RNA sequence: UUGCAUCCAGUAGGAAUUGAACCUACGAAUAUGCCAAUUAUGAGUUGGCUGCUUUACCAUUCGGCCAUGGAUGC
Numbered sequence: 001u002u003g004c005a006u007c008c009a010g011u012a013g014g015a016a017u018u019g020a021a022c023c024u025a026c027g028a029a030u031a032u033g034c035c036a037a038u039u040a041u042g043a044g045u046u047g048g049c050u051g052c053u054u055u056a057c058c059a060u061u062c063g064g065c066c067a068u069g070g071a072u073g074c
Stems, first nucleotide, its partner, number of pairs: 003074006010026005040068003044065005050059002
RNA: Plastid-ycf2 5UTR RNA